[Rfam]
RNA: miR-430 microRNA precursor family
Organism: Bagarius yarrelli
RNA sequence: UAGAUUACUUCAAAUGGAAGCACUAAUUUUAUUUUAUUAUCAAUAAGUGCUACUCUUUGGGGCAGUCUCA
Number, nucleotide and partner (000 for none) at each position: 001u000002a000003g000004a066005u065006u064007a000008c062009u061010u060011c059012a000013a000014a057015u000016g055017g054018a000019a051020g050021c049022a048023c047024u046025a000026a044027u043028u042029u000030u000031a000032u000033u000034u000035u000036a000037u000038u000039a000040u000041c000042a028043a027044u026045a000046a024047g023048u022049g021050c020051u019052a000053c000054u017055c016056u000057u014058u000059g011060g010061g009062g008063c000064a006065g005066u004067c000068u000069c000070a000